[Rfam]
A member of the RNA family "Fluoride riboswitch aptamer (crcB RNA motif)" from Moritella sp. Urea-trap-13, 67 nucleotides long.
A search with the family's covariance model found it, with a score of 57 bits.
The literature on the family includes a 2012 paper in Science by Baker et al., "Widespread genetic switches and toxicity resistance proteins for fluoride".
The organism belongs to Moritella, within Bacteria.
RNA sequence: ACGGCAUAAGGUGAUGGGGUGCCACCUACUUAACCGCCAAUCUCUGGCUGAUGACUCCUAUUAAAUU
Numbered sequence: 001a002c003g004g005c006a007u008a009a010g011g012u013g014a015u016g017g018g019g020u021g022c023c024a025c026c027u028a029c030u031u032a033a034c035c036g037c038c039a040a041u042c043u044c045u046g047g048c049u050g051a052u053g054a055c056u057c058c059u060a061u062u063a064a065a066u067u
Stems, first nucleotide, its partner, number of pairs: 010026004016058005036048004